[Rfam]
RNA sequence: AAAAGAGAUAGAGGUUGCGUUUUUCAUUAGUACUUUCUAGGAGACGACAGGCGUCUGUGAACAGAGAGGAAAGGGGAAUACGCCGAAAGAGGAGGCUUCCUGGGAGCGUCUUGCUUGGGCAUGCAGUGAAGAACUGUAUGACUGUCAUCGACAGAUGGGGAGCUAUCAUUUAU
Numbered sequence: 001a002a003a004a005g006a007g008a009u010a011g012a013g014g015u016u017g018c019g020u021u022u023u024u025c026a027u028u029a030g031u032a033c034u035u036u037c038u039a040g041g042a043g044a045c046g047a048c049a050g051g052c053g054u055c056u057g058u059g060a061a062c063a064g065a066g067a068g069g070a071a072a073g074g075g076g077a078a079u080a081c082g083c084c085g086a087a088a089g090a091g092g093a094g095g096c097u098u099c100c101u102g103g104g105a106g107c108g109u110c111u112u113g114c115u116u117g118g119g120c121a122u123g124c125a126g127u128g129a130a131g132a133a134c135u136g137u138a139u140g141a142c143u144g145u146c147a148u149c150g151a152c153a154g155a156u157g158g159g160g161a162g163c164u165a166u167c168a169u170u171u172a173u
Stems, first nucleotide, its partner, number of pairs: 007167005017083004022078004033068006087116003090112004095107003117143002120140008145158005

Shown here is a 173-nucleotide sequence from Roseburia sp. CAG:100, a member of the family "Lysine riboswitch aptamer". A search with the family's covariance model found it, with a score of 107 bits. The source organism's lineage runs through Bacteria, Bacillati, Lachnospirales, Lachnospiraceae and Roseburia. The base pairs follow the family's consensus structure, which is taken from published work.